[Rfam]
RNA sequence: AAACAGCCCCCUAUAUUUUGAUUCUUUGGCAGUUUUGGACCCCAAGGCAAAAAAAAAAAAAAUUUGACACGUGACACCUCACUUAGGGUGCCACGUCAGCGUUGACCGAGUCAACAAUGGACUGGGGGUCAAAAACUGCCAAAAAAUCAAAAAUAGGAGGCUGUUU
Numbered sequence: 001a002a003a004c005a006g007c008c009c010c011c012u013a014u015a016u017u018u019u020g021a022u023u024c025u026u027u028g029g030c031a032g033u034u035u036u037g038g039a040c041c042c043c044a045a046g047g048c049a050a051a052a053a054a055a056a057a058a059a060a061a062a063u064u065u066g067a068c069a070c071g072u073g074a075c076a077c078c079u080c081a082c083u084u085a086g087g088g089u090g091c092c093a094c095g096u097c098a099g100c101g102u103u104g105a106c107c108g109a110g111u112c113a114a115c116a117a118u119g120g121a122c123u124g125g126g127g128g129u130c131a132a133a134a135a136c137u138g139c140c141a142a143a144a145a146a147u148c149a150a151a152a153a154u155a156g157g158a159g160g161c162u163g164u165u166u
Base pairs, nucleotide, nucleotide: 001166002165004163005162006161007160008159012155013154014153016152017151018150019149020148021147022146023145025143026142027141028140029139030138031137032136033135034134035133036132038130039129040128041127042126043125045123069096070095072093073092075090076089077088078087
Dot-bracket structure: ((.(((((...(((.((((((((.((((((((((((.((((((.(.......................((.((.((((........)))).)).))..........................).)))))).)))))))))))).)))))))))))...))))).))

The record is a 166-nucleotide RNA sequence from Medicago truncatula, which matches "MIR2619 microRNA precursor family" in Rfam.
Its family is annotated with miRNA-mediated post-transcriptional gene silencing and RISC complex in the Gene Ontology.
A search with the family's covariance model found it, with a score of 149 bits.